RNA sequence: GGGUGUGAGGGCGAUCUGGCUGUGAUGCCUGUCACCCCAUUGAUGGCCAGUGUUGGCUCGGCUGAUCUGGCUGGCUAGGCAGGUGUCCCCUUCCUCCCUCACGGAUCCAUGUGCAUCCCUUCUGAAGCUGUGCUCAGUCGAAGAGGACUACCUUCCCAACUAGGGGAGAGGGCUGGUCUUCAGUCAAGGGUAUAUGAGCAGCUGAGCUCCCCUGCUAGAACCCCCAAACAAGCUCUCAAGGUCCAUUUGAAAGGGAACAUAGGGCAGUCAAGCUUCCAAGACUCCAGACACAUCCAAAUGAGGGGCUGCAUGGGGCAGUCUGCCUUUCUUU
Numbered sequence: 001g002g003g004u005g006u007g008a009g010g011g012c013g014a015u016c017u018g019g020c021u022g023u024g025a026u027g028c029c030u031g032u033c034a035c036c037c038c039a040u041u042g043a044u045g046g047c048c049a050g051u052g053u054u055g056g057c058u059c060g061g062c063u064g065a066u067c068u069g070g071c072u073g074g075c076u077a078g079g080c081a082g083g084u085g086u087c088c089c090c091u092u093c094c095u096c097c098c099u100c101a102c103g104g105a106u107c108c109a110u111g112u113g114c115a116u117c118c119c120u121u122c123u124g125a126a127g128c129u130g131u132g133c134u135c136a137g138u139c140g141a142a143g144a145g146g147a148c149u150a151c152c153u154u155c156c157c158a159a160c161u162a163g164g165g166g167a168g169a170g171g172g173c174u175g176g177u178c179u180u181c182a183g184u185c186a187a188g189g190g191u192a193u194a195u196g197a198g199c200a201g202c203u204g205a206g207c208u209c210c211c212c213u214g215c216u217a218g219a220a221c222c223c224c225c226a227a228a229c230a231a232g233c234u235c236u237c238a239a240g241g242u243c244c245a246u247u248u249g250a251a252a253g254g255g256a257a258c259a260u261a262g263g264g265c266a267g268u269c270a271a272g273c274u275u276c277c278a279a280g281a282c283u284c285c286a287g288a289c290a291c292a293u294c295c296a297a298a299u300g301a302g303g304g305g306c307u308g309c310a311u312g313g314g315g316c317a318g319u320c321u322g323c324c325u326u327u328c329u330u331u
Stems, first nucleotide, its partner, number of pairs: 001108003005102007013093002018090002024087010035074002037070003042067003046062003116171002118166004122137004127133002145156003201273003207267002210264005222255003229249004296331003300326004305319005